The family of this 384-nucleotide part of an RNA from Prolixibacter sp. SD074 is "Bacterial large subunit ribosomal RNA". It scores 2759 bits against the family's covariance model. Rfam links the family to the GO terms structural constituent of ribosome and ribosome.
RNA sequence: GAUAAGGCAGGUGGGAAACCUGCCCGCCGAUAGACUAAGGUUUCCUGAUCAACGCUAAUCGGAUCAGGGUUAGUCGGGGCCUAAGGCAAAGCCGAACGGCGAAGCCGAUGGACCAUCGGUUAAUAUUCCGAUACUUCUCUUGACUGCGAUGGGGUGACGAAGUGAUGAAAGGCCCGCGUACUGACGGAAUAGUACGUUAAAAGGCGUAGGUGUUGAGACUCAUAGGUAAAUCCGUGAGUUGAGCUGAAACCUGACAGUACCGGGAGCCUUCGGGCAACCGGACAGUGGCCCUAAGGGCUUCCGAGAAAAACCUCUAAGCUACAGGUCAAGAGGACCCGUACCGUAAACCGACACAGGUAGUCAAGGAGAGAAUCCUGAGGCGCU
Numbered sequence: 001g002a003u004a005a006g007g008c009a010g011g012u013g014g015g016a017a018a019c020c021u022g023c024c025c026g027c028c029g030a031u032a033g034a035c036u037a038a039g040g041u042u043u044c045c046u047g048a049u050c051a052a053c054g055c056u057a058a059u060c061g062g063a064u065c066a067g068g069g070u071u072a073g074u075c076g077g078g079g080c081c082u083a084a085g086g087c088a089a090a091g092c093c094g095a096a097c098g099g100c101g102a103a104g105c106c107g108a109u110g111g112a113c114c115a116u117c118g119g120u121u122a123a124u125a126u127u128c129c130g131a132u133a134c135u136u137c138u139c140u141u142g143a144c145u146g147c148g149a150u151g152g153g154g155u156g157a158c159g160a161a162g163u164g165a166u167g168a169a170a171g172g173c174c175c176g177c178g179u180a181c182u183g184a185c186g187g188a189a190u191a192g193u194a195c196g197u198u199a200a201a202a203g204g205c206g207u208a209g210g211u212g213u214u215g216a217g218a219c220u221c222a223u224a225g226g227u228a229a230a231u232c233c234g235u236g237a238g239u240u241g242a243g244c245u246g247a248a249a250c251c252u253g254a255c256a257g258u259a260c261c262g263g264g265a266g267c268c269u270u271c272g273g274g275c276a277a278c279c280g281g282a283c284a285g286u287g288g289c290c291c292u293a294a295g296g297g298c299u300u301c302c303g304a305g306a307a308a309a310a311c312c313u314c315u316a317a318g319c320u321a322c323a324g325g326u327c328a329a330g331a332g333g334a335c336c337c338g339u340a341c342c343g344u345a346a347a348c349c350g351a352c353a354c355a356g357g358u359a360g361u362c363a364a365g366g367a368g369a370g371a372a373u374c375c376u377g378a379g380g381c382g383c384u
Base pairs, nucleotide, nucleotide: 006024007023008022009021010020011019025382026381027380028379033362034361035360036359039342040341044068045067046066047065048064049063053061054060075338076337077336078335080111081110085106086105087104091100092099093098115132116131117130118129119128135334136333137332138331139330140329141328142327143326144325145324146319147318151314152313153312154311155310159301160300161299162298171291172290174288175287176197177196178195179194180193181192198257202252203251204250209245210244211243217240218239219238220237221236222235223234225233226232261281263279264278348357349356364376365375366374367373